The record is a 173-nucleotide sequence from Sporomusa silvacetica, which matches "Group II catalytic intron D1-D4-3" in Rfam. Taxonomically the source falls in Sporomusa silvacetica (Bacteria, Bacillota, Sporomusaceae, Sporomusa).
[Rfam]
RNA sequence: UCCAUCGUGAGAUGGAAUCUGAAGGAAGCCGGCGGCAAAUCUCUGGUCUGACGAACAGAAACCACAUACAAGGCAGGAAGAAGCCGGGUAAGGUUGCGAUCCAAACUGAAGCCCUAAACUAUUCGAGGCCAAUCCUGUAAAUGUGGCAGAUAGAUGGAGAGAAAGACUGCGUU
Numbered sequence: 001u002c003c004a005u006c007g008u009g010a011g012a013u014g015g016a017a018u019c020u021g022a023a024g025g026a027a028g029c030c031g032g033c034g035g036c037a038a039a040u041c042u043c044u045g046g047u048c049u050g051a052c053g054a055a056c057a058g059a060a061a062c063c064a065c066a067u068a069c070a071a072g073g074c075a076g077g078a079a080g081a082a083g084c085c086g087g088g089u090a091a092g093g094u095u096g097c098g099a100u101c102c103a104a105a106c107u108g109a110a111g112c113c114c115u116a117a118a119c120u121a122u123u124c125g126a127g128g129c130c131a132a133u134c135c136u137g138u139a140a141a142u143g144u145g146g147c148a149g150a151u152a153g154a155u156g157g158a159g160a161g162a163a164a165g166a167c168u169g170c171g172u173u
Stems, first nucleotide, its partner, number of pairs: 001016006028173001030171002036165001040160006046151005062146006073138003077134001079133001083129002086114004092107004
From the family's description: Group II introns are found in rRNA, tRNA and mRNA of organelles in fungi, plants and protists, and also in mRNA in bacteria.